This 237-nucleotide sequence from Syntrophaceticus schinkii belongs to the Rfam family "Group II catalytic intron D1-D4-6". The organism belongs to Syntrophaceticus, within Bacteria. Rfam's curators write: Group II introns are found in rRNA, tRNA and mRNA of organelles in fungi, plants and protists, and also in mRNA in bacteria. A search with the family's covariance model found it, with a score of 158 bits.
[Rfam]
RNA sequence: GGAAUCCCACCGGGCAAGGUUUAGCCAACCACCCGUACGCAGCCUUGGAGCAUAGCUGGUAACAGCUAUGUUUAAGCGUAGGCAGGCGAGACAGCGGGCCGAAAGCCGCAAGGUUGAAGGGAUUGAGCUUCGAAAUAGUGCGAGAUGGGAAGGCCGAUUCAUUCCGUCCUGAAGAAGGCAACAUUUCGGCAGGCGAUAGAGGCGAGCAGGCCGGAACUUCCCCGGAGUCAAAGACCU
Numbered sequence: 001g002g003a004a005u006c007c008c009a010c011c012g013g014g015c016a017a018g019g020u021u022u023a024g025c026c027a028a029c030c031a032c033c034c035g036u037a038c039g040c041a042g043c044c045u046u047g048g049a050g051c052a053u054a055g056c057u058g059g060u061a062a063c064a065g066c067u068a069u070g071u072u073u074a075a076g077c078g079u080a081g082g083c084a085g086g087c088g089a090g091a092c093a094g095c096g097g098g099c100c101g102a103a104a105g106c107c108g109c110a111a112g113g114u115u116g117a118a119g120g121g122a123u124u125g126a127g128c129u130u131c132g133a134a135a136u137a138g139u140g141c142g143a144g145a146u147g148g149g150a151a152g153g154c155c156g157a158u159u160c161a162u163u164c165c166g167u168c169c170u171g172a173a174g175a176a177g178g179c180a181a182c183a184u185u186u187c188g189g190c191a192g193g194c195g196a197u198a199g200a201g202g203c204g205a206g207c208a209g210g211c212c213g214g215a216a217c218u219u220c221c222c223c224g225g226a227g228u229c230a231a232a233g234a235c236c237u
Base pairs, nucleotide, nucleotide: 011035012034013033014032018030019029020028021027022205024203025202038088039087040086042083043082044081045080046078047077048073049072050071051070052069053068054067055066056065057064058063124231125229127228128227129226130225131224132223147222148221149220150219151218152217153179154178155177158173159172160171161170184216185215186214187213188212189211190210193207194206